[Rfam]
RNA sequence: GAUUAAGAUGGAGGCUGGAAUAAUUAUCAGUAUUCAGAGGAUUAUGGAUCAGAUCUUCUUCUGAAGAAAGGGAUUAUUUUCGAAAUCUGAAUUUAAGCUGAUCAUUGAAUUCAGAUUGGGGCUGGAGUUAAUAACUUCAGAACUGUCAUCAGUUAAACUGAUGAAGGGCUGUCUUAAUC
Numbered sequence: 001g002a003u004u005a006a007g008a009u010g011g012a013g014g015c016u017g018g019a020a021u022a023a024u025u026a027u028c029a030g031u032a033u034u035c036a037g038a039g040g041a042u043u044a045u046g047g048a049u050c051a052g053a054u055c056u057u058c059u060u061c062u063g064a065a066g067a068a069a070g071g072g073a074u075u076a077u078u079u080u081c082g083a084a085a086u087c088u089g090a091a092u093u094u095a096a097g098c099u100g101a102u103c104a105u106u107g108a109a110u111u112c113a114g115a116u117u118g119g120g121g122c123u124g125g126a127g128u129u130a131a132u133a134a135c136u137u138c139a140g141a142a143c144u145g146u147c148a149u150c151a152g153u154u155a156a157a158c159u160g161a162u163g164a165a166g167g168g169c170u171g172u173c174u175u176a177a178u179c
Stems, first nucleotide, its partner, number of pairs: 006174006017080009033065008084117012118144002122140007146164007
Record summary:
A member of the RNA family "Lysine riboswitch aptamer" from Acetohalobium arabaticum, 179 nucleotides long. Lineage of the source: Bacteria > Bacillota > Halobacteroidaceae > Acetohalobium > Acetohalobium arabaticum.